A member of the RNA family "MIR1120/MIR1122 microRNA precursor family" from Triticum turgidum, 87 nucleotides long. Taxonomically the source falls in Triticum turgidum (Eukaryota, commelinids, Poales, Pooideae).
[Rfam]
RNA sequence: AUACUCCCUCUGUCCUAAAAUAUAAGAACGUUUUUAACACUAGCAUAGUGUUAAAAACGUUCUUAUAUUCUGGGGUGAAGGGAGUAU
Numbered sequence: 001a002u003a004c005u006c007c008c009u010c011u012g013u014c015c016u017a018a019a020a021u022a023u024a025a026g027a028a029c030g031u032u033u034u035u036a037a038c039a040c041u042a043g044c045a046u047a048g049u050g051u052u053a054a055a056a057a058c059g060u061u062c063u064u065a066u067a068u069u070c071u072g073g074g075g076u077g078a079a080g081g082g083a084g085u086a087u
Stems, first nucleotide, its partner, number of pairs: 003085003007081003011077001013075005019069023
Dot-bracket structure: ..(((.(((.(.(((((.(((((((((((((((((((((((.....))))))))))))))))))))))).))))).).))).)))..

Its family is annotated with miRNA-mediated post-transcriptional gene silencing and RISC complex in the Gene Ontology.